[Rfam]
RNA: Small nucleolar RNA SNORA44
Organism: Odobenus rosmarus
RNA sequence: CAGCAUGUUUCCAAGGGCUGUGGUUGGCUAUGGCCAUGGGAUCUUCAACUGCACUGGAGAGCAACCCCAAGAGACUUUGAUAGCACAGGUCUGUGUAAUACCUACCUGCAGCUGCUAGAACAGCUCAGGGGAGAAA
Numbered sequence: 001c002a003g004c005a006u007g008u009u010u011c012c013a014a015g016g017g018c019u020g021u022g023g024u025u026g027g028c029u030a031u032g033g034c035c036a037u038g039g040g041a042u043c044u045u046c047a048a049c050u051g052c053a054c055u056g057g058a059g060a061g062c063a064a065c066c067c068c069a070a071g072a073g074a075c076u077u078u079g080a081u082a083g084c085a086c087a088g089g090u091c092u093g094u095g096u097a098a099u100a101c102c103u104a105c106c107u108g109c110a111g112c113u114g115c116u117a118g119a120a121c122a123g124c125u126c127a128g129g130g131g132a133g134a135a136a
Base pairs, nucleotide, nucleotide: 011039012038016035017034018033019032020031021030022029068129071126072125073124083115084114086108087107088106089105